[Rfam]
RNA sequence: AUGCCUUAAACUGAUGAGUAAGGAAAAUAACGACGCGGGGUGACGCCUGUGUCCUCGCACAAUCUCGCGAGAAGAAUUUUUGAAAGGGCACAGGUCCGUCUGCGAGGUGACUCACCUACUUAGUGAGAUGCCGAGCAGAGCCAGGAUCUGCCCC
Number, nucleotide and partner (000 for none) at each position: 001a000002u000003g000004c023005c022006u021007u020008a019009a000010a000011c000012u000013g000014a000015u000016g000017a000018g000019u008020a007021a006022g005023g004024a000025a000026a000027a000028u000029a000030a000031c000032g053033a052034c051035g050036c049037g048038g047039g046040g000041u000042g000043a000044c000045g000046c039047c038048u037049g036050u035051g034052u033053c032054c071055u070056c069057g068058c067059a000060c000061a000062a000063u000064c000065u000066c000067g058068c057069g056070a055071g054072a000073a000074g000075a000076a000077u000078u000079u000080u000081u000082g000083a000084a000085a000086g153087g152088g151089c150090a000091c000092a149093g148094g147095u146096c145097c144098g000099u000100c000101u000102g136103c135104g000105a000106g132107g131108u130109g129110a000111c127112u126113c125114a124115c123116c000117u000118a000119c000120u000121u000122a000123g115124u114125g113126a112127g111128a000129u109130g108131c107132c106133g000134a000135g103136c102137a000138g000139a000140g000141c000142c000143a000144g097145g096146a095147u094148c093149u092150g089151c088152c087153c086154c000
RNA: U12 minor spliceosomal RNA